[Rfam]
RNA: Flavo-1 RNA
RNA sequence: AUCUAGCCCCGAUGGAAACGGCAUCCUUUUUAUCCGUCUUUUUGCGGAUAAAAAGAUAUAGUGUACAGCGGGAGGAAAG
Numbered sequence: 001a002u003c004u005a006g007c008c009c010c011g012a013u014g015g016a017a018a019c020g021g022c023a024u025c026c027u028u029u030u031u032a033u034c035c036g037u038c039u040u041u042u043u044g045c046g047g048a049u050a051a052a053a054a055g056a057u058a059u060a061g062u063g064u065a066c067a068g069c070g071g072g073a074g075g076a077a078a079g
Stems, first nucleotide, its partner, number of pairs: 009071003013067002018062002023057003029052008
Dot-bracket structure: ........(((.((...((...(((...((((((((........))))))))..)))...))...)).)))........